The family of this 102-nucleotide sequence from Holtiella tumoricola is "Purine riboswitch aptamer". NCBI's taxonomy places the organism under Bacteria, Bacillati, Bacillota, Cellulosilyticaceae, Holtiella. Rfam links the family to the GO term purine nucleobase biosynthetic process. It scores 78 bits against the family's covariance model.
RNA sequence: UUAUGUAUACAUAUAUUAUAUCGUAUAAAUUUGGUGAUAAGGACCGAAGGUUUCUACCUACUUGCCGUAAAUAAGUAGACUACGAAAUGUUCACCUUCCCAA
Numbered sequence: 001u002u003a004u005g006u007a008u009a010c011a012u013a014u015a016u017u018a019u020a021u022c023g024u025a026u027a028a029a030u031u032u033g034g035u036g037a038u039a040a041g042g043a044c045c046g047a048a049g050g051u052u053u054c055u056a057c058c059u060a061c062u063u064g065c066c067g068u069a070a071a072u073a074a075g076u077a078g079a080c081u082a083c084g085a086a087a088u089g090u091u092c093a094c095c096u097u098c099c100c101a102a
Base pairs, nucleotide, nucleotide: 018088019087021085022084023083024082025081030048031047032046033045034044035043058078059077060076061075062074063073064072